[Rfam]
RNA: SAM-I/IV (S-adenosyl methionine) riboswitch aptamer
RNA sequence: GUAGUACAUCAAGAGAAGAGCUGAUGCUCUCGCCAACCUGUCUUCCCAGACAAAGGUGGUUUCCCGAAAGGGGAUGUGGUCGUACCGGCAACUAAACAGGGUACA
Number, nucleotide and partner (000 for none) at each position: 001g000002u000003a000004g000005u000006a077007c076008a075009u074010c073011a000012a000013g000014a000015g031016a000017a030018g029019a028020g027021c026022u000023g000024a000025u000026g021027c020028u019029c018030u017031c015032g060033c059034c058035a000036a000037c056038c055039u054040g051041u050042c049043u000044u101045c100046c099047c000048a000049g042050a041051c040052a000053a000054a039055g038056g037057u000058g034059g033060u032061u000062u000063c000064c000065c000066g000067a000068a000069a000070g000071g000072g000073g010074a009075u008076g007077u006078g000079g089080u088081c087082g086083u000084a000085c000086c082087g081088g080089c079090a000091a000092c000093u000094a000095a000096a000097c000098a000099g046100g045101g044102u000103a000104c000105a000